[Rfam]
RNA: MIR5269 microRNA precursor family
RNA sequence: UUGGGUGAAAUCAAUGUAUGUUCCACACUUUGAAAAUGGAACCCACAUAAAGUGAUGAGACAUAUAUUAAUUUCACCCAA
Numbered sequence: 001u002u003g004g005g006u007g008a009a010a011u012c013a014a015u016g017u018a019u020g021u022u023c024c025a026c027a028c029u030u031u032g033a034a035a036a037u038g039g040a041a042c043c044c045a046c047a048u049a050a051a052g053u054g055a056u057g058a059g060a061c062a063u064a065u066a067u068u069a070a071u072u073u074c075a076c077c078c079a080a
Stems, first nucleotide, its partner, number of pairs: 001080011013068006024057002026054007
Dot-bracket structure: (((((((((((.((((((.....(((((((((...............))))))).)).....)))))).)))))))))))